The family of this 121-nucleotide sequence from Camellia sinensis is "Plastid-psbA-1 3UTR RNA".

RNA sequence: UUGAAGCUCCAUCUACAAAUGGAUAAGACACUUUGGGUCUUAGUGUAUACUCGUUUUUUUAAAAUAAAGGAGCAAAAUAACCAAUUCUUGUUCUUAUCAGGAAGGCGUUAUUUGUUCCUUU
Number, nucleotide and partner (000 for none) at each position: 001u000002u000003g000004a000005a000006g000007c000008u023009c022010c021011a020012u019013c000014u000015a000016c000017a000018a000019a012020u011021g010022g009023a008024u000025a000026a000027g000028a000029c000030a000031c000032u000033u000034u000035g000036g000037g000038u000039c000040u000041u000042a000043g000044u000045g000046u000047a000048u000049a000050c000051u000052c000053g000054u000055u000056u000057u000058u000059u000060u000061a000062a000063a000064a000065u000066a121067a120068a119069g118070g117071a116072g115073c114074a113075a112076a000077a111078u110079a109080a000081c107082c000083a000084a000085u103086u102087c101088u100089u099090g000091u000092u000093c000094u000095u000096a000097u000098c000099a089100g088101g087102a086103a085104g000105g000106c000107g081108u000109u079110a078111u077112u075113u074114g073115u072116u071117c070118c069119u068120u067121u066
By type it is a cis-regulatory element. From the family's description: Plastid psbA-1 is a non-coding RNA (ncRNA) present in plastids. It was identified in inverted repeat sequences in the 3 prime untranslate region (3UTR) of photosystem II quinone-binding protein (psbA). The family is grouped with related families in Rfam's "Plastid-psbA 3UTR RNA clan". Pairs were carried over by alignment from the consensus structure, which was predicted with LocARNA.